The record is a 99-nucleotide sequence from Otolemur garnettii, which matches "Y RNA" in Rfam. The family's consensus secondary structure is taken from published work. Taxonomically the source falls in Otolemur (Eukaryota, Metazoa, Craniata, Primates). Rfam's curators write: Y RNAs are components of the Ro ribonucleoprotein particle (Ro RNP), in association with Ro60 and La proteins. The Y RNAs and Ro60 and La proteins are well conserved, but the function of the Ro RNP is not known. In humans the RNA component can be one of four small RNAs -- hY1, hY3, hY4 and hY5.
[Rfam]
RNA sequence: GACUGAUCCAAGGGUUGUGAGUUACUUUUAGUGAUUGUUCAGAGUUACAGAUCAAACUGCUCUUUCCCCCAUCUCACUACUGAAUUUGACUGGUCUUAA
Numbered sequence: 001g002a003c004u005g006a007u008c009c010a011a012g013g014g015u016u017g018u019g020a021g022u023u024a025c026u027u028u029u030a031g032u033g034a035u036u037g038u039u040c041a042g043a044g045u046u047a048c049a050g051a052u053c054a055a056a057c058u059g060c061u062c063u064u065u066c067c068c069c070c071a072u073c074u075c076a077c078u079a080c081u082g083a084a085u086u087u088g089a090c091u092g093g094u095c096u097u098a099a
Base pairs, nucleotide, nucleotide: 001095002094003093004092005091007089008088010087011086015082017077018076019075020074021073033061035059037057038056
The match comes from Rfam's covariance-model search (56 bits). Rfam 15.1 lists 26,986 matches to the family in 650 species.